[Rfam]
RNA: L17 ribosomal protein downstream element
RNA sequence: UGAGUGUUAUGAUGUUGGUUAUGUUAACUAAGUCUAGCUCCAAAGCUUUCGCGCUACUUUUCGGGAAUG
Numbered sequence: 001u002g003a004g005u006g007u008u009a010u011g012a013u014g015u016u017g018g019u020u021a022u023g024u025u026a027a028c029u030a031a032g033u034c035u036a037g038c039u040c041c042a043a044a045g046c047u048u049u050c051g052c053g054c055u056a057c058u059u060u061u062c063g064g065g066a067a068u069g
Base pairs, nucleotide, nucleotide: 002040003039004038005037011034012033013032017029018028019027020026046069048067049066050065052063053062